[Rfam]
RNA sequence: AUACGAAAUGGCAAACCUGUCGAAAGGCAGGGACGCAAAGCUAUAGGGCCUUCUAUUGAUGAUGGCAGCCUGGCCACCGAAA
Numbered sequence: 001a002u003a004c005g006a007a008a009u010g011g012c013a014a015a016c017c018u019g020u021c022g023a024a025a026g027g028c029a030g031g032g033a034c035g036c037a038a039a040g041c042u043a044u045a046g047g048g049c050c051u052u053c054u055a056u057u058g059a060u061g062a063u064g065g066c067a068g069c070c071u072g073g074c075c076a077c078c079g080a081a082a
Stems, first nucleotide, its partner, number of pairs: 011036002016031006034068001040074003045071003048066003

The record is an 82-nucleotide sequence from Paenibacillus polymyxa, which matches "c-di-GMP-I-GGC riboswitch aptamer" in Rfam. NCBI's taxonomy places the organism under Bacteria, Bacilli, Paenibacillaceae, Paenibacillus, Paenibacillus polymyxa. It scores 62 bits against the family's covariance model. The family's consensus secondary structure is taken from published work.